[Rfam]
The record is an 87-nucleotide RNA from Elaeis guineensis, which matches "Small nucleolar RNA Z102/R77" in Rfam. A search with the family's covariance model found it, with a score of 75 bits. For this family Rfam cites "The high diversity of snoRNAs in plants: identification and comparative study of 120 snoRNA genes from Oryza sativa" (Chen et al., Nucleic Acids Res, 2003). Pairs were carried over by alignment from the consensus structure, which was predicted with PFOLD.

RNA sequence: UGGUGAGGGGAUGAUUAUGACUAGUUUCCCUAUUGGUUUGAUAGCCGGGAUGAUGGCUUUCAUUGUAUUAGCUCUAUCUGAUCACAA
Numbered sequence: 001u002g003g004u005g006a007g008g009g010g011a012u013g014a015u016u017a018u019g020a021c022u023a024g025u026u027u028c029c030c031u032a033u034u035g036g037u038u039u040g041a042u043a044g045c046c047g048g049g050a051u052g053a054u055g056g057c058u059u060u061c062a063u064u065g066u067a068u069u070a071g072c073u074c075u076a077u078c079u080g081a082u083c084a085c086a087a
Stems, first nucleotide, its partner, number of pairs: 003085003043058004

Clan: SNORD44 clan.